[Rfam]
RNA sequence: AACCAGUGAUGAAAAGAUUCUGCCAAAUGAAUAUAAGCAUUGAUUAUAACCCUUACCGUUCCAUUAUUUCUGAGGUU
Numbered sequence: 001a002a003c004c005a006g007u008g009a010u011g012a013a014a015a016g017a018u019u020c021u022g023c024c025a026a027a028u029g030a031a032u033a034u035a036a037g038c039a040u041u042g043a044u045u046a047u048a049a050c051c052c053u054u055a056c057c058g059u060u061c062c063a064u065u066a067u068u069u070c071u072g073a074g075g076u077u
Base pairs, nucleotide, nucleotide: 001077002076003075004074